mir-156 microRNA precursor family: an 88-nucleotide RNA sequence from Capsicum annuum. The family's consensus secondary structure was predicted with PFOLD. The source organism's lineage runs through Eukaryota, Pentapetalae, lamiids, Solanales and Capsicum. From the family's description: This family represents the plant microRNA (miRNA) precursor mir-156. For this family Rfam cites "microRNAs: tiny regulators with great potential" (Ambros, Cell, 2001).
RNA sequence: CUGACAGAAGAGAGUGAGCACACGCAGACGAAUUGUAUAAAGAUUUAUACAAUUGUCAUUUGCGUGUGCUCAUUUCUCUUUCUGUCAG
Numbered sequence: 001c002u003g004a005c006a007g008a009a010g011a012g013a014g015u016g017a018g019c020a021c022a023c024g025c026a027g028a029c030g031a032a033u034u035g036u037a038u039a040a041a042g043a044u045u046u047a048u049a050c051a052a053u054u055g056u057c058a059u060u061u062g063c064g065u066g067u068g069c070u071c072a073u074u075u076c077u078c079u080u081u082c083u084g085u086c087a088g
Stems, first nucleotide, its partner, number of pairs: 001088009010078003013074009023064003